[Rfam]
RNA: c-di-GMP-I-GGC riboswitch aptamer
RNA sequence: UGCGACAAAGGCAAACCCGCUCGAAAGACGGGGGCGCAAAGCGAUGGGCCUUCGGUUCGGUGCCCCCACCGGAUAACCGAUGGUUGCCAAGCUGCCGAAC
Numbered sequence: 001u002g003c004g005a006c007a008a009a010g011g012c013a014a015a016c017c018c019g020c021u022c023g024a025a026a027g028a029c030g031g032g033g034g035c036g037c038a039a040a041g042c043g044a045u046g047g048g049c050c051u052u053c054g055g056u057u058c059g060g061u062g063c064c065c066c067c068a069c070c071g072g073a074u075a076a077c078c079g080a081u082g083g084u085u086g087c088c089a090a091g092c093u094g095c096c097g098a099a100c
Stems, first nucleotide, its partner, number of pairs: 003097002011037002016032004021028002035086001040093003045089003048084003